[Rfam]
RNA sequence: AUAUCCUUUAAUUCAGUCCAGAGAGGCUGCAAAGGCACCAAGUGAUAAAAAAAGCAGGCCUAUAGCCCCUGCUGGAUUUUGUGUGACCUUGCCCUCUUGGGUGAGGUCUUUUUUGGU
Number, nucleotide and partner (000 for none) at each position: 001a000002u000003a000004u000005c035006c034007u033008u032009u031010a000011a000012u000013u000014c029015a028016g027017u026018c025019c000020a000021g000022a000023g000024a000025g018026g017027c016028u015029g014030c000031a009032a008033a007034g006035g005036c000037a000038c000039c000040a000041a000042g000043u000044g000045a000046u000047a000048a078049a077050a000051a000052a000053a073054g072055c071056a070057g069058g068059c000060c065061u000062a000063u000064a000065g060066c000067c000068c058069c057070u056071g055072c054073u053074g000075g000076a000077u049078u048079u000080u000081g112082u000083g110084u000085g108086a107087c106088c105089u104090u103091g102092c101093c100094c099095u000096c000097u000098u000099g094100g093101g092102u091103g090104a089105g088106g087107u086108c085109u000110u083111u000112u081113u000114u000115g000116g000117u000
The record is a 117-nucleotide sequence from Streptococcus sp. DD12, which matches "PyrR binding site" in Rfam.
The family's consensus secondary structure is taken from published work.
Rfam classes the family as a cis-regulatory element.
This family represents the PyrR binding site and terminator structure. This RNA structure is found upstream of a variety of genes involved in pyrimidine biosynthesis and transport. The alignment also includes a portion of the antiterminator structure.
For this family Rfam cites "Molecular recognition of pyr mRNA by the Bacillus subtilis attenuation regulatory protein PyrR" (Bonner et al., Nucleic Acids Res, 2001).
The source organism's lineage runs through Bacteria, Bacillati, Bacillota, Bacilli and Streptococcus.